[Rfam]
RNA: Mammalian CPEB3 ribozyme
RNA sequence: CAGGUAGAGAACAGGCCAUAGCAGAAGUGCUCAUGGUGAGGCCCUGUCACAUUCCAACGAAUCUGCAAAUUCUGCU
Numbered sequence: 001c002a003g004g005u006a007g008a009g010a011a012c013a014g015g016c017c018a019u020a021g022c023a024g025a026a027g028u029g030c031u032c033a034u035g036g037u038g039a040g041g042c043c044c045u046g047u048c049a050c051a052u053u054c055c056a057a058c059g060a061a062u063c064u065g066c067a068a069a070u071u072c073u074g075c076u
Base pairs, nucleotide, nucleotide: 014043015042016041017040020076021075022074023073024072025071026070028038029037048065049064051062052061053060054059